[Rfam]
RNA sequence: ACUGCUGAGCCACCUCUCCAGCCCCAGUAAAAUAAUUUUUAAAAAAUUAAAAUGAGGGGGCUGGAGAGAUGGCUCAGCAGU
Dot-bracket structure: .(((((((((((.(((((((((((.................................))))))))))).))))))))))).
RNA: mir-3473 microRNA precursor family
Organism: Cricetulus griseus